[Rfam]
RNA sequence: AAUAGUUACUUGCUGAGUCUGUGCUUUUUUUCAGGCACAGAGCGGGGGACAUGAAUGCUUCAUAUGGGGUGUAUCCGCGUUUGCGGAGGGAGACCUUAUCCUCUCAACCCGUCAACUAACCUCGUAAGCACGAAGGGAGUACCA
Numbered sequence: 001a002a003u004a005g006u007u008a009c010u011u012g013c014u015g016a017g018u019c020u021g022u023g024c025u026u027u028u029u030u031u032c033a034g035g036c037a038c039a040g041a042g043c044g045g046g047g048g049a050c051a052u053g054a055a056u057g058c059u060u061c062a063u064a065u066g067g068g069g070u071g072u073a074u075c076c077g078c079g080u081u082u083g084c085g086g087a088g089g090g091a092g093a094c095c096u097u098a099u100c101c102u103c104u105c106a107a108c109c110c111g112u113c114a115a116c117u118a119a120c121c122u123c124g125u126a127a128g129c130a131c132g133a134a135g136g137g138a139g140u141a142c143c144a
Stems, first nucleotide, its partner, number of pairs: 011130004018041009042125006050066004067110003075086004089104004
RNA: c-di-AMP riboswitch aptamer (ydaO/yuaA leader)
Organism: Aneurinibacillus soli